The record is a 77-nucleotide RNA from Branchiostoma lanceolatum, which matches "Mammalian CPEB3 ribozyme" in Rfam. It scores 62 bits against the family's covariance model.
RNA sequence: UUAGAAAAUGGGGGCCAUGGAAGGAGUGUUCUCGCCGCGGCCCCUGUCAGGUGACUACGUUACCUGCGAAUCCUUCU
Numbered sequence: 001u002u003a004g005a006a007a008a009u010g011g012g013g014g015c016c017a018u019g020g021a022a023g024g025a026g027u028g029u030u031c032u033c034g035c036c037g038c039g040g041c042c043c044c045u046g047u048c049a050g051g052u053g054a055c056u057a058c059g060u061u062a063c064c065u066g067c068g069a070a071u072c073c074u075u076c077u
Base pairs, nucleotide, nucleotide: 011044012043013042014041015040016039019077020076021075022074023073024072025071026038027037028036048066049065050064051063052062053061054060